[Rfam]
Nucleotides: 438
Stems, first nucleotide, its partner, number of pairs: 015033006034436004043416004049396002054078006063071002085392003089150002094144002096112003100109003119137002154171005174388004179384005184378001191200003208365006217350004222345007230335003233253006257306005266296006275287004313330007402411002418430004
Number, partner (000 for none) and nucleotide at each position: 001000g002000g003000u004000a005000g006000u007000a008000g009000c010000a011000a012000a013000u014000a015033u016032u017031c018030a019029a020028a021000u022000g023000a024000g025000a026000a027000c028020u029019u030018u031017g032016a033015a034436g035435a036434c037433u038000g039000a040000a041000g042000u043416g044415g045414g046413g047000a048000a049396a050395g051000g052000u053000u054078c055077c056076a057075c058074g059073u060000g061000a062000a063071c064070a065000g066000c067000a068000g069000u070064u071063g072000g073059a074058c075057g076056u077055g078054g079000g080000u081000c082000a083000g084000u085392c086391g087390a088000u089150c090149c091000u092000a093000a094144g095143a096112g097111a098110u099000a100109g101108g102107g103000a104000a105000g106000c107102u108101c109100c110098g111097u112096u113000u114000c115000a116000a117000u118000g119137u120136g121000u122000g123000c124000a125000a126000u127000u128000c129000u130000u131000u132000g133000c134000g135000c136120c137119a138000a139000c140000u141000u142000a143095u144094c145000g146000a147000a148000a149090g150089g151000g152000a153000a154171u155170c156169c157168g158167g159000u160000u161000a162000a163000u164000a165000u166000u167158c168157c169156g170155g171154a172000a173000c174388c175387a176386g177385g178000a179384u180383g181382u182381g183380g184378a185000u186000u187000c188000u189000c190000c191200a192199c193198g194000g195000c196000a197000a198193c199192g200191u201000a202000a203000c204000u205000g206000a207000a208365c209364u210363u211362g212361g213360a214000g215000a216000c217350g218349u219348c220347g221000g222345c223344a224343g225342g226341a227340g228339c229000c230335c231334u232333g233253g234252g235251a236250a237249g238248a239000g240000u241000u242000c243000u244000c245000u246000u247000u248238u249237c250236u251235u252234c253233u254000u255000a256000a257306c258305g259304g260303c261302c262000u263000a264000u265000c266296a267295c268294c269293c270292u271291g272000a273000a274000a275287u276286c277285g278284g279000a280000u281000u282000a283000u284278c285277c286276g287275g288000a289000g290000c291271u292270a293269g294268g295267g296266u297000u298000c299000a300000a301000u302261g303260g304259u305258c306257g307000g308000u309000a310000g311000a312000g313330c314329c315328c316327a317326a318325c319324a320000c321000u322000u323000c324319u325318g326317u327316u328315g329314g330313g331000u332000c333232u334231g335230g336000u337000g338000c339228g340227c341226u342225c343224c344223u345222g346000a347220c348219g349218g350217c351000c352000c353000u354000u355000g356000a357000a358000a359000a360213u361212c362211c363210a364209a365208g366000g367000g368000a369000a370000g371000g372000a373000a374000u375000a376000g377000u378184u379000u380183u381182c382181a383180c384179g385177c386176c387175u388174g389000g390087u391086c392085g393000u394000a395050c396049u397000c398000a399000u400000a401000a402411c403410c404000g405000c406000a407000g408000c409000a410403g411402g412000u413046c414045u415044c416043c417000a418430a419429g420428g421427u422000g423000a424000a425000c426000a427421g428420c429419c430418u431000c432000u433037a434036g435035u436034u437000g438000a
Rfam assigns this 438-nucleotide part of an RNA from Neolecta irregularis to the family "Eukaryotic large subunit ribosomal RNA". Clan: LSU clan.